A member of the RNA family "c-di-GMP-II-GAG riboswitch aptamer", 85 nucleotides long. Its Rfam clan is "c-di-GMP_II riboswitch clan". The base pairs follow the family's consensus structure, which is taken from published work. For this family Rfam cites "Bioinformatic analysis of riboswitch structures uncovers variant classes with altered ligand specificity" (Weinberg et al., Proc Natl Acad Sci U S A, 2017). Rfam links the family to the GO terms regulation of gene expression and cyclic-di-GMP binding.
[Rfam]
RNA sequence: ACAAACGCGGGAGGCUGUGACACACGGUCCCCAACCCGGUCGCCUGAACCGUGUCGAGCCACUGGCGAGACCGCCCGACGUCAGG
Number, nucleotide and partner (000 for none) at each position: 001a000002c084003a000004a000005a081006c080007g079008c000009g000010g076011g075012a000013g060014g059015c058016u000017g000018u000019g000020a000021c000022a054023c053024a052025c051026g050027g049028u048029c000030c000031c000032c000033a000034a000035c000036c000037c000038g072039g071040u068041c067042g066043c065044c064045u000046g000047a000048a028049c027050c026051g025052u024053g023054u022055c000056g000057a000058g015059c014060c013061a000062c000063u000064g044065g043066c042067g041068a040069g000070a000071c039072c038073g000074c000075c011076c010077g000078a000079c007080g006081u005082c000083a000084g002085g000